The record is a 164-nucleotide RNA sequence from Salvelinus namaycush, which matches "U1 spliceosomal RNA" in Rfam. Its Rfam clan is "U1 clan".

RNA sequence: UUACAGUACCUGGCAGGGGAGACACCUUGAUCACGAAGGAGAUUCACCCAGGGCGAGGUUCGGCCAUUGCACUCUGGACGAGCUGAUCCCUCGAAUUCCCCAGAUGUGGGAAUCUCUACUGCAUAAGUUGUGGUAGUGGGGGACUGUGUCCGCACUCCCCCCCC
Numbered sequence: 001u002u003a004c005a006g007u008a009c010c011u012g013g014c015a016g017g018g019g020a021g022a023c024a025c026c027u028u029g030a031u032c033a034c035g036a037a038g039g040a041g042a043u044u045c046a047c048c049c050a051g052g053g054c055g056a057g058g059u060u061c062g063g064c065c066a067u068u069g070c071a072c073u074c075u076g077g078a079c080g081a082g083c084u085g086a087u088c089c090c091u092c093g094a095a096u097u098c099c100c101c102a103g104a105u106g107u108g109g110g111a112a113u114c115u116c117u118a119c120u121g122c123a124u125a126a127g128u129u130g131u132g133g134u135a136g137u138g139g140g141g142g143a144c145u146g147u148g149u150c151c152g153c154a155c156u157c158c159c160c161c162c163c164c
Base pairs, nucleotide, nucleotide: 013122014121015120016119017049018048019047021045022044024043026041027040028039050091051090052089053088055087057084058083059082061080062079064077065076093116094115095113096112097111099109100108138163139162140161141160142159146155147154148153